[Rfam]
Description
A member of the RNA family "mir-1388 microRNA precursor family" from Gouania willdenowi, 92 nucleotides long. On this family, see Warren et al., Nature 2010: "The genome of a songbird". The family's consensus secondary structure was predicted with RNAalifold. The match comes from Rfam's covariance-model search (80 bits).

RNA sequence: CACUGAGUGGUUCUUCCUUGGACUGUCCAACCUGAGAAUGGUGGUUUGAGGCUCAGUCUCAGGUUCGUCAGCCCAUGGAACGCUGACUCACC
Numbered sequence: 001c002a003c004u005g006a007g008u009g010g011u012u013c014u015u016c017c018u019u020g021g022a023c024u025g026u027c028c029a030a031c032c033u034g035a036g037a038a039u040g041g042u043g044g045u046u047u048g049a050g051g052c053u054c055a056g057u058c059u060c061a062g063g064u065u066c067g068u069c070a071g072c073c074c075a076u077g078g079a080a081c082g083c084u085g086a087c088u089c090a091c092c
Stems, first nucleotide, its partner, number of pairs: 005089003008085004014080004020074002023071003027067001029065009039055002